[Rfam]
RNA sequence: GACGAACGCGCGGGAGAGUGCGUCGGAUUGCCAUGAGCUGUCCGUCGCCGCCGAAGGAGCAACCGCCCCGGAAUCUCUCAGGCCAAGGGACCGCGCGGACGAC
Numbered sequence: 001g002a003c004g005a006a007c008g009c010g011c012g013g014g015a016g017a018g019u020g021c022g023u024c025g026g027a028u029u030g031c032c033a034u035g036a037g038c039u040g041u042c043c044g045u046c047g048c049c050g051c052c053g054a055a056g057g058a059g060c061a062a063c064c065g066c067c068c069c070g071g072a073a074u075c076u077c078u079c080a081g082g083c084c085a086a087g088g089g090a091c092c093g094c095g096c097g098g099a100c101g102a103c
Stems, first nucleotide, its partner, number of pairs: 007097007020048003050083003053079002057077003063071002
This 103-nucleotide RNA sequence from Edaphosphingomonas laterariae belongs to the Rfam family "Glycine riboswitch aptamer". From the family's description: This family represents the bacterial glycine riboswitch.